RNA sequence: GCUGGAACUGGUUGGCACCAGUCAUGGGCAAAAUAAAUGUUGUUUUGUCCACUGUUGCAGUCUUCCUAGAGCAAAGUGGAGGUCUCUGUCUGCUUUAGGACAGCAAACUAAAUCAGAUCGUUCCCCUCCUUACAGG
Numbered sequence: 001g002c003u004g005g006a007a008c009u010g011g012u013u014g015g016c017a018c019c020a021g022u023c024a025u026g027g028g029c030a031a032a033a034u035a036a037a038u039g040u041u042g043u044u045u046u047g048u049c050c051a052c053u054g055u056u057g058c059a060g061u062c063u064u065c066c067u068a069g070a071g072c073a074a075a076g077u078g079g080a081g082g083u084c085u086c087u088g089u090c091u092g093c094u095u096u097a098g099g100a101c102a103g104c105a106a107a108c109u110a111a112a113u114c115a116g117a118u119c120g121u122u123c124c125c126c127u128c129c130u131u132a133c134a135g136g
Stems, first nucleotide, its partner, number of pairs: 004066003009060001011058002025051005032044003078129005086120001088118003092114001094112005